[Rfam]
The record is a 135-nucleotide RNA sequence from Hucho hucho, which matches "U11 spliceosomal RNA" in Rfam. The match comes from Rfam's covariance-model search (98 bits). NCBI's taxonomy places the organism under Eukaryota, Opisthokonta, Osteoglossocephalai, Salmonidae, Hucho.
RNA sequence: UAAAAGGGCUCCUGCUAUGUUUAGCACAGGGAGGUUGGUGAUUCACCACUUUCCCUGCGGAAUCUAGAUCAAGAGAUUUCGGAAGCAGAAUUUUUACUCUCUGGGUUGCGAAUGACCGUGAGUCUUUGCGCCCCA
Numbered sequence: 001u002a003a004a005a006g007g008g009c010u011c012c013u014g015c016u017a018u019g020u021u022u023a024g025c026a027c028a029g030g031g032a033g034g035u036u037g038g039u040g041a042u043u044c045a046c047c048a049c050u051u052u053c054c055c056u057g058c059g060g061a062a063u064c065u066a067g068a069u070c071a072a073g074a075g076a077u078u079u080c081g082g083a084a085g086c087a088g089a090a091u092u093u094u095u096a097c098u099c100u101c102u103g104g105g106u107u108g109c110g111a112a113u114g115a116c117c118g119u120g121a122g123u124c125u126u127u128g129c130g131c132c133c134c135a
Stems, first nucleotide, its partner, number of pairs: 008086003012082001013026005027057008036048003058081007103133004108129005114124003
Notes: For this family Rfam cites "Evolution of spliceosomal snRNA genes in metazoan animals" (Marz et al., J Mol Evol, 2008).